Rfam assigns this 92-nucleotide RNA sequence from Ancylobacter sp. TS-1 to the family "Selenocysteine transfer RNA". A search with the family's covariance model found it, with a score of 81 bits.
RNA sequence: GGAAGAGCGUUAUCUCCGGUGAGGUACCCGGACUUCAAAUCCGGGAGGGGCCGCGAGCCGGUCCCUGGUGGGUUCGACUCCCACUCUCUUCC
Numbered sequence: 001g002g003a004a005g006a007g008c009g010u011u012a013u014c015u016c017c018g019g020u021g022a023g024g025u026a027c028c029c030g031g032a033c034u035u036c037a038a039a040u041c042c043g044g045g046a047g048g049g050g051c052c053g054c055g056a057g058c059c060g061g062u063c064c065c066u067g068g069u070g071g072g073u074u075c076g077a078c079u080c081c082c083a084c085u086c087u088c089u090u091c092c
Base pairs, nucleotide, nucleotide: 001092002091003090004089005088006087007086009084011026012025013024014023015022016021027045028044029043030042031041032040047065048064049063050062051061069083070082071081072080